[Rfam]
The record is a 147-nucleotide RNA from Panthera leo, which matches "U12 minor spliceosomal RNA" in Rfam. Gene Ontology terms of the family: mRNA branch site recognition, pre-mRNA branch point binding and U12 snRNP. NCBI's taxonomy places the organism under Eukaryota, Teleostomi, Carnivora, Felidae, Panthera. It scores 89 bits against the family's covariance model. The family has 62 seed sequences and 2,106 matches in Rfam 15.1. The family's RNA type in Rfam is spliceosomal small nuclear RNA. The literature on the family includes a 1997 paper in Trends Biochem Sci by Tarn and Steitz, "Pre-mRNA splicing: the discovery of a new spliceosome doubles the challenge".

RNA sequence: AUGCUUUAAACUUAUGAGUAAGGAAAAUAAUGAUGGGGGAGGUGCCCAAAUCUUCACUGGUAAUGUGAGAUGAAUUUUUGAGCAGGUAGUUUUCCCCUAAGGUGACCCACCUACUUCGGGAGAUGACUGGGAGUCAUGAUCAGCCUG
Number, nucleotide and partner (000 for none) at each position: 001a000002u000003g000004c023005u022006u021007u020008a019009a000010a000011c000012u000013u000014a000015u000016g000017a000018g000019u008020a007021a006022g005023g004024a000025a000026a000027a000028u000029a000030a000031u000032g052033a051034u050035g000036g047037g046038g045039g000040a000041g000042g000043u000044g000045c038046c037047c036048a000049a000050a034051u033052c032053u069054u068055c067056a066057c065058u000059g000060g000061u000062a000063a000064u000065g057066u056067g055068a054069g053070a000071u000072g000073a000074a000075u000076u000077u000078u000079u000080g000081a000082g000083c147084a146085g145086g144087u143088a000089g141090u000091u139092u138093u000094c000095c000096c000097c131098u130099a000100a128101g127102g000103u125104g124105a000106c122107c000108c120109a000110c118111c000112u000113a000114c000115u000116u000117c000118g110119g000120g108121a000122g106123a000124u104125g103126a000127c101128u100129g000130g098131g097132a000133g000134u000135c000136a000137u000138g092139a091140u000141c089142a000143g087144c086145c085146u084147g083